The family of this 331-nucleotide sequence from Cercocebus atys is "7SK RNA". Lineage of the source: Eukaryota > Chordata > Vertebrata > Euarchontoglires > Cercocebus.
RNA sequence: GGAUGUGAGGGCGAUCUGGCUGUGACAUCUGUCACUUCAUUGAUUGCCAGGGUUGAUUUGGCUGAUCUGGCUGGCUAGGUGGGUGUCCCCCCUCUUCCCUCACUGCUCCAUGUGCAUCCCUCCUGAAGCUGCAUGCUCAGUCAAAGAGGACGACCAUCCCCAAUAAAGGAGGACCUGUCUUCAGUCAAGGGUAUACAAGUAUCUGCUCUUCUUAGCUAGAACCUCCAAACAAGUUCUCAAGGUCCAUUGUAGGAGCAUGUAGGGUAGUCAAGCUUCCAAGACUUCAGACACAUCCUAAUAAGGCACUGCAUGUGGCAGUCUGCCUUUACAA
Number, nucleotide and partner (000 for none) at each position: 001g109002g108003a107004u000005g103006u102007g101008a100009g099010g098011g097012c000013g094014a093015u000016c000017u000018g090019g089020c000021u000022g000023u000024g087025a086026c085027a084028u083029c082030u081031g080032u079033c078034a000035c074036u073037u070038c069039a068040u000041u000042g067043a066044u065045u064046g062047c061048c060049a000050g000051g000052g000053u000054u000055g000056a000057u000058u000059u000060g048061g047062c046063u000064g045065a044066u043067c042068u039069g038070g037071c000072u000073g036074g035075c000076u000077a000078g033079g032080u031081g030082g029083g028084u027085g026086u025087c024088c000089c019090c018091c000092c000093u014094c013095u000096u000097c011098c010099c009100u008101c007102a006103c005104u000105g000106c000107u003108c002109c001110a000111u000112g000113u000114g000115c000116a000117u172118c171119c169120c168121u167122c000123c140124u139125g138126a137127a000128g136129c135130u000131g000132c000133a000134u000135g129136c128137u126138c125139a124140g123141u163142c000143a000144a000145a000146g000147a000148g159149g158150a157151c000152g000153a000154c000155c000156a000157u150158c149159c148160c000161c000162a000163a141164u000165a000166a000167a121168g120169g119170a000171g118172g117173a000174c000175c000176u000177g000178u000179c000180u000181u000182c000183a000184g000185u000186c000187a000188a000189g000190g000191g000192u000193a000194u000195a000196c000197a000198a000199g000200u000201a000202u000203c272204u271205g000206c000207u000208c267209u266210u000211c264212u263213u262214a000215g260216c259217u000218a000219g000220a000221a000222c000223c255224u254225c253226c252227a000228a000229a250230c249231a248232a247233g000234u000235u000236c000237u000238c000239a000240a000241g000242g000243u000244c000245c000246a000247u232248u231249g230250u229251a000252g226253g225254a224255g223256c000257a000258u000259g216260u215261a000262g213263g212264g211265u000266a209267g208268u000269c000270a000271a204272g203273c000274u000275u000276c000277c000278a000279a000280g000281a000282c000283u000284u000285c000286a000287g000288a000289c000290a000291c000292a000293u000294c000295c000296u331297a000298a000299u000300a326301a325302g324303g323304c322305a319306c318307u317308g316309c315310a000311u000312g000313u000314g000315g309316c308317a307318g306319u305320c000321u000322g304323c303324c302325u301326u300327u000328a000329c000330a000331a296
Rfam 15.1 lists 49,373 matches to the family in 668 species.